[Rfam]
RNA sequence: AAUCGACAAAGGCAAACUUACUGAAAAGUAAGGACGCAAAGCCAUGGGUCUAAGGUCUAGUAGACUAAGAUUGCCAGGUUACCAAG
Numbered sequence: 001a002a003u004c005g006a007c008a009a010a011g012g013c014a015a016a017c018u019u020a021c022u023g024a025a026a027a028g029u030a031a032g033g034a035c036g037c038a039a040a041g042c043c044a045u046g047g048g049u050c051u052a053a054g055g056u057c058u059a060g061u062a063g064a065c066u067a068a069g070a071u072u073g074c075c076a077g078g079u080u081a082c083c084a085a086g
Stems, first nucleotide, its partner, number of pairs: 012037002017032006040080004045076003048071003055065004
Dot-bracket structure: ...........((...((((((....))))))...))..((((.((((((....((((...))))...)))..)))))))......

c-di-GMP-I riboswitch aptamer: an 86-nucleotide RNA sequence from Ornithinibacillus hominis. Lineage of the source: Bacteria > Bacillati > Bacillota > Bacilli > Ornithinibacillus. A search with the family's covariance model found it, with a score of 87 bits. Rfam's curators write: GEMM was predicted in a large-scale screen for bacterial structured RNA regulatory elements.